[Rfam]
Rfam assigns this 78-nucleotide RNA sequence from Denticeps clupeoides to the family "mir-92 microRNA precursor family".
Pairs were carried over by alignment from the consensus structure, which was predicted with PFOLD.
This family represents the microRNA precursor mir-92.
Taxonomically the source falls in Denticeps (Eukaryota, Gnathostomata, Actinopteri, Clupeiformes).
Clan: mir-92 microRNA precursor clan.
The family has 23 seed sequences and 1,347 matches in Rfam 15.1.
RNA sequence: CUUUCUGCACAGGUUGGGAUGGGUAGCAAUGCUGUGCACUUAGAAGGUAUUGCACUUGUCCCGGCCUGUUGAGGAUUG
Numbered sequence: 001c002u003u004u005c006u007g008c009a010c011a012g013g014u015u016g017g018g019a020u021g022g023g024u025a026g027c028a029a030u031g032c033u034g035u036g037c038a039c040u041u042a043g044a045a046g047g048u049a050u051u052g053c054a055c056u057u058g059u060c061c062c063g064g065c066c067u068g069u070u071g072a073g074g075a076u077u078g
Stems, first nucleotide, its partner, number of pairs: 004074003009069006016062005022056003026053008